Shown here is a 370-nucleotide sequence from Rothia sp. ZJ932, a member of the family "Bacterial RNase P class A". It is annotated as a ribozyme. Ribonuclease P (RNase P) is a ubiquitous endoribonuclease, found in archaea, bacteria and eukarya as well as chloroplasts and mitochondria. The match comes from Rfam's covariance-model search (307 bits).
RNA sequence: CGGGAUGCUCAGGCAAUCGCGCGACGCAAACACGUCUCGAGGAAAGUCCGGGCUCCACAGCACAGGAUGGUGGAUAACAUCCACUCAGGGCAACCUGCAGGCCAGUGCCACAGAAAACAAACCGCCCACCGGAUCACGGUAGGUAAGGGUGAAAAGGUAGUGUAAGAGACUACCAGUACCCCAAGCGAUUGAGGUAGCUCGGUAAACCCCAUCCGGAGCAAGGUCAAACAGAGCAUGCUCGAAGGUAGUGCGCCUAAUAUGCUCGGGUAGACCGCUUGAACCCCACAGCAAUGUCGGGUCUAGAUGGAUGAUUGCCCCCACCCUUCACAGAAGGUGGCGACAGAACCCGGCUCAUCGAGCAUCCCGUGUU
Numbered sequence: 001c002g003g004g005a006u007g008c009u010c011a012g013g014c015a016a017u018c019g020c021g022c023g024a025c026g027c028a029a030a031c032a033c034g035u036c037u038c039g040a041g042g043a044a045a046g047u048c049c050g051g052g053c054u055c056c057a058c059a060g061c062a063c064a065g066g067a068u069g070g071u072g073g074a075u076a077a078c079a080u081c082c083a084c085u086c087a088g089g090g091c092a093a094c095c096u097g098c099a100g101g102c103c104a105g106u107g108c109c110a111c112a113g114a115a116a117a118c119a120a121a122c123c124g125c126c127c128a129c130c131g132g133a134u135c136a137c138g139g140u141a142g143g144u145a146a147g148g149g150u151g152a153a154a155a156g157g158u159a160g161u162g163u164a165a166g167a168g169a170c171u172a173c174c175a176g177u178a179c180c181c182c183a184a185g186c187g188a189u190u191g192a193g194g195u196a197g198c199u200c201g202g203u204a205a206a207c208c209c210c211a212u213c214c215g216g217a218g219c220a221a222g223g224u225c226a227a228a229c230a231g232a233g234c235a236u237g238c239u240c241g242a243a244g245g246u247a248g249u250g251c252g253c254c255u256a257a258u259a260u261g262c263u264c265g266g267g268u269a270g271a272c273c274g275c276u277u278g279a280a281c282c283c284c285a286c287a288g289c290a291a292u293g294u295c296g297g298g299u300c301u302a303g304a305u306g307g308a309u310g311a312u313u314g315c316c317c318c319c320a321c322c323c324u325u326c327a328c329a330g331a332a333g334g335u336g337g338c339g340a341c342a343g344a345a346c347c348c349g350g351c352u353c354a355u356c357g358a359g360c361a362u363c364c365c366g367u368g369u370u
Stems, first nucleotide, its partner, number of pairs: 001366010011355001012316007020039002023036004045352002048350005053218004060251004065214005070084005085099001086097004100209002105207002107203003122148002124144003128140004156174006176198001177196004182191003222273004231264006243255004280299004285294003
Dot-bracket structure: ((((((((((((((((((.((.((((......)))).)).....[[.[[[[[((((...[[[[.((((((((((.....)))))(((((....)))).)((...(((((............(((((.((((.....)))).)))..)).......((((((.......)))))).(((((.(((....))).)))).)..)))..)))))))))))))...((((.....((((((......((((.]]]]))))...)))))).....))))......((((.(((....))).))))..........))))))).............................]]]]]]]..).))))))))))....